[Rfam]
The family of this 69-nucleotide RNA from Pontibacter akesuensis is "Fluoride riboswitch aptamer (crcB RNA motif)". Taxonomically the source falls in Pontibacter (Bacteria, Pseudomonadati, Cytophagia, Cytophagales).
RNA sequence: UGCAAAGAAGGUGAUGGGGUACCACCUGGAACCGCCUGCCCGGGCAGCGCUGAUGACUCCUGGUGCAGG
Numbered sequence: 001u002g003c004a005a006a007g008a009a010g011g012u013g014a015u016g017g018g019g020u021a022c023c024a025c026c027u028g029g030a031a032c033c034g035c036c037u038g039c040c041c042g043g044g045c046a047g048c049g050c051u052g053a054u055g056a057c058u059c060c061u062g063g064u065g066c067a068g069g
Base pairs, nucleotide, nucleotide: 010026011025012024013023016060017059018058019057020056034050035049